[Rfam]
RNA sequence: GGGGGCGACAUGGCUUCGACGUGGAUUACGAACCUCUAGGUGCAUGUCGAGAUGUUAGCGAAUCUCGUAAAAUCAAAGCUAAAACUUUAUAGUUGCAAACGAAGACAACUACGCUUUAGCCGCUUAAUCGGCUAACUGUCGCCUCUGAGCGUUCUUGGUAGGAGCUCGACAGUCAUUACAGGGACUAGCAGGUAACUGUGCUCGGCAGCCAACUGCGAAACUAUCCUCGAGAUCGUCUUACUAAGCCUGCCCAUCGGCUCGAGUUAGAUUAAAUUAAAGGUGGUUCUAAACAUGUAGAGCCUAGAGCAGAGGAUUUGCGGACGGGGGUUCAAUUCCCCCCGCCUCCACCA
Numbered sequence: 001g002g003g004g005g006c007g008a009c010a011u012g013g014c015u016u017c018g019a020c021g022u023g024g025a026u027u028a029c030g031a032a033c034c035u036c037u038a039g040g041u042g043c044a045u046g047u048c049g050a051g052a053u054g055u056u057a058g059c060g061a062a063u064c065u066c067g068u069a070a071a072a073u074c075a076a077a078g079c080u081a082a083a084a085c086u087u088u089a090u091a092g093u094u095g096c097a098a099a100c101g102a103a104g105a106c107a108a109c110u111a112c113g114c115u116u117u118a119g120c121c122g123c124u125u126a127a128u129c130g131g132c133u134a135a136c137u138g139u140c141g142c143c144u145c146u147g148a149g150c151g152u153u154c155u156u157g158g159u160a161g162g163a164g165c166u167c168g169a170c171a172g173u174c175a176u177u178a179c180a181g182g183g184a185c186u187a188g189c190a191g192g193u194a195a196c197u198g199u200g201c202u203c204g205g206c207a208g209c210c211a212a213c214u215g216c217g218a219a220a221c222u223a224u225c226c227u228c229g230a231g232a233u234c235g236u237c238u239u240a241c242u243a244a245g246c247c248u249g250c251c252c253a254u255c256g257g258c259u260c261g262a263g264u265u266a267g268a269u270u271a272a273a274u275u276a277a278a279g280g281u282g283g284u285u286c287u288a289a290a291c292a293u294g295u296a297g298a299g300c301c302u303a304g305a306g307c308a309g310a311g312g313a314u315u316u317g318c319g320g321a322c323g324g325g326g327g328u329u330c331a332a333u334u335c336c337c338c339c340c341g342c343c344u345c346c347a348c349c350a
Stems, first nucleotide, its partner, number of pairs: 001346007020319008034306008043294005048067005055082005116135007136172006143164004148159001150157001151185006188216004193211001201231004235269004240264003245258003249286001252283001253281003323339005

Overview: The family of this 350-nucleotide RNA sequence from Kangiella sp. HZ709 is "transfer-messenger RNA". A search with the family's covariance model found it, with a score of 215 bits. The family's RNA type in Rfam is non-coding RNA gene. NCBI's taxonomy places the organism under Bacteria, Pseudomonadota, Kangiellales, Kangiellaceae, Kangiella.